The record is a 130-nucleotide sequence from Penaeus vannamei, which matches "Small Cajal body specific RNA 8" in Rfam.
[Rfam]
RNA sequence: UUGGACAUGAUACGCAGGUUUGAUUCAAGUUCGUCAAAACUGUCACUUUAUUGUCCAAAGAGUGAAAGUGCCUUCUGAUGACCAUGCUAUUUGCAGACCCUUGGUAUGGACAGAUACGGGGCAAAUAAUA
Numbered sequence: 001u002u003g004g005a006c007a008u009g010a011u012a013c014g015c016a017g018g019u020u021u022g023a024u025u026c027a028a029g030u031u032c033g034u035c036a037a038a039a040c041u042g043u044c045a046c047u048u049u050a051u052u053g054u055c056c057a058a059a060g061a062g063u064g065a066a067a068g069u070g071c072c073u074u075c076u077g078a079u080g081a082c083c084a085u086g087c088u089a090u091u092u093g094c095a096g097a098c099c100c101u102u103g104g105u106a107u108g109g110a111c112a113g114a115u116a117c118g119g120g121g122c123a124a125a126u127a128a129u130a
Base pairs, nucleotide, nucleotide: 002057003056004055005054006053007052014043015042016041017040021036022035023034024033069123070122071121072120073119074118082109083108084107087104088103089102
Rfam's curators write: scaRNAs are a specific class of small nuclear RNAs which localise to the Cajal bodies and guide the modification of RNA polymerase II transcribed spliceosomal RNAs U1, U2, U4, U5 and U12. U92 belong to the H/ACA box class of guide RNAs as it has the predicted hairpin-hinge-hairpin-tail structure, conserved H/ACA-box motifs and is found associated with GAR1. A reference for the family is Huttenhofer et al. (2001), "RNomics: an experimental approach that identifies 201 candidates for novel, small, non-messenger RNAs in mouse", EMBO J. The source organism's lineage runs through Eukaryota, Bilateria, Arthropoda, Altocrustacea and Penaeus. The family's RNA type in Rfam is small Cajal body RNA. The base pairs follow the family's consensus structure, which is taken from published work.